[Rfam]
RNA sequence: ACGGAAGCCCGGCGAAGCCAAGGUCGAUCCGGAAGAGAAGGUUCGAUCUCCCGACCCGGGCGCCCAGCACGGUACCCGGCACCCACGCGGAGUCAUAGCCGCGAUAAUGGCAGAAGUGUUGCGGGCCUGCGUAAUUGCGAAAAGCAGAAGAGCUUGGACGGCCCUUUGGGUGGGGCUGGAGUUCGAAGCGUCGCAAGAUCGCCGAGGCCACCCACGCAGCCCAGAAGUGCACGCAUGGUAACCGGGUUCCGUGCUAGCGGGCGGCGCACCGAAUACUUCGGAACGCCGCCCGCUCUGCAUG
Dot-bracket structure: ..((..((((((....(...((..(((.((.........)).)))..)).)....)))))).)).(((((((...((((...(((.(((..((....(((........)))......((((((((((((((...((((((...((....(((((....(((((((......))))))).)))))...)).))))))...)))..))))).....))))))........)).))).)))...))))...))))))).((((((((((..(((.......)))..))))))))))........

Mycobacterium smegmatis small RNA 1: a 301-nucleotide sequence from Mycobacterium sherrisii. Its family is annotated with RNA polymerase binding in the Gene Ontology. Mycobacterium smegmatis small RNA 1 is highly expressed during stationary phase of growth. Ms1 RNA directly interacts with RNA polymerase (RNAP), but in a different way than 6S, which is present in other bacteria. Ms1 does not require the presence of the main sigma factor for RNAP interaction. There is evidence that Ms1 RNA may function similar to 6S RNA in M. smegmatis which does not have 6S RNA. The match comes from Rfam's covariance-model search (240 bits).